[Rfam]
RNA sequence: GAUUGCACGCAGGGGGGUCCCGCCCAGGGGACUGAGAGGCUGACAGUGCAGAUGCACGGUGACGCGACCCUUUGAACCUGACCCAGUUGAUACUGGCGUAGGAAGCUAGGUGCGCUCACUG
Numbered sequence: 001g002a003u004u005g006c007a008c009g010c011a012g013g014g015g016g017g018u019c020c021c022g023c024c025c026a027g028g029g030g031a032c033u034g035a036g037a038g039g040c041u042g043a044c045a046g047u048g049c050a051g052a053u054g055c056a057c058g059g060u061g062a063c064g065c066g067a068c069c070c071u072u073u074g075a076a077c078c079u080g081a082c083c084c085a086g087u088u089g090a091u092a093c094u095g096g097c098g099u100a101g102g103a104a105g106c107u108a109g110g111u112g113c114g115c116u117c118a119c120u121g
Base pairs, nucleotide, nucleotide: 006109009106010105011071012070013069014068016065017032018031019030020029021028077102078101079100080099083096084095085094086093
Rfam assigns this 121-nucleotide RNA sequence from Roseovarius nubinhibens to the family "TPP riboswitch aptamer (THI element)".
The source organism's lineage runs through Bacteria, Alphaproteobacteria, Roseobacteraceae, Roseovarius and Roseovarius nubinhibens.